[Rfam]
RNA sequence: GCUGGAAUGAUCCCUGGCGGUCCAGGGCUUAGCCUUCAAAGCUAAGGGUCGCUUGCGCGACAGUCGUUCGACUCGACCUUUCCGGC
Numbered sequence: 001g002c003u004g005g006a007a008u009g010a011u012c013c014c015u016g017g018c019g020g021u022c023c024a025g026g027g028c029u030u031a032g033c034c035u036u037c038a039a040a041g042c043u044a045a046g047g048g049u050c051g052c053u054u055g056c057g058c059g060a061c062a063g064u065c066g067u068u069c070g071a072c073u074c075g076a077c078c079u080u081u082c083c084g085g086c
Stems, first nucleotide, its partner, number of pairs: 001086007009078001012027006028046006048061005063077004
RNA: Selenocysteine transfer RNA
Organism: Pedinophyceae sp. YPF-701